[Rfam]
RNA: Fluoride riboswitch aptamer (crcB RNA motif)
RNA sequence: GUCGGGCGAGGCGAUGGAUCCCGCCGGGGUCGUCCGAUCGGACGACCCGAACCGCCGGCCGGCUGAUGGUUCCUUCUCACGA
Numbered sequence: 001g002u003c004g005g006g007c008g009a010g011g012c013g014a015u016g017g018a019u020c021c022c023g024c025c026g027g028g029g030u031c032g033u034c035c036g037a038u039c040g041g042a043c044g045a046c047c048c049g050a051a052c053c054g055c056c057g058g059c060c061g062g063c064u065g066a067u068g069g070u071u072c073c074u075u076c077u078c079a080c081g082a
Base pairs, nucleotide, nucleotide: 010025011024012023013022016073017072018071020069021068054063055062056061